[Rfam]
RNA sequence: GUUUUUUGGCUGCCGGUGGUUUCACGCUAGCGACGUUUUGCCGUGAGGCAAAACUUGAAGCUUAAAAAAUGUACCUCUCUGUACAUUUUUUAAGCGGUA
Numbered sequence: 001g002u003u004u005u006u007u008g009g010c011u012g013c014c015g016g017u018g019g020u021u022u023c024a025c026g027c028u029a030g031c032g033a034c035g036u037u038u039u040g041c042c043g044u045g046a047g048g049c050a051a052a053a054c055u056u057g058a059a060g061c062u063u064a065a066a067a068a069a070u071g072u073a074c075c076u077c078u079c080u081g082u083a084c085a086u087u088u089u090u091u092a093a094g095c096g097g098u099a
Base pairs, nucleotide, nucleotide: 001014003012031057032056033055035054036053037052038051039050040049041048042047060095061094062093063092064091065090066089067088068087069086070085071084072083073082